[Rfam]
Source information
The record is a 94-nucleotide sequence, which matches "c-di-GMP-II-GAG riboswitch aptamer" in Rfam. Its family is annotated with regulation of gene expression and cyclic-di-GMP binding in the Gene Ontology. Its Rfam clan is "c-di-GMP_II riboswitch clan". On this family, see Weinberg et al., Proc Natl Acad Sci U S A 2017: "Bioinformatic analysis of riboswitch structures uncovers variant classes with altered ligand specificity". The base pairs follow the family's consensus structure, which is taken from published work.
RNA sequence: GGGCGACCCGGGGGCGUUCCACAGCACGUGUCUCGAUACCGCGGUCGCCUUCGACACGUGCCGAAUGCCAAUGGCGAGACCGACCCAGGCGCGC
Numbered sequence: 001g002g003g004c005g006a007c008c009c010g011g012g013g014g015c016g017u018u019c020c021a022c023a024g025c026a027c028g029u030g031u032c033u034c035g036a037u038a039c040c041g042c043g044g045u046c047g048c049c050u051u052c053g054a055c056a057c058g059u060g061c062c063g064a065a066u067g068c069c070a071a072u073g074g075c076g077a078g079a080c081c082g083a084c085c086c087a088g089g090c091g092c093g094c
Base pairs, nucleotide, nucleotide: 001094003092004091005090007088010085011084013069014068015067024061025060026059027058028057029056030055031054043081044080045077046076047075048074049073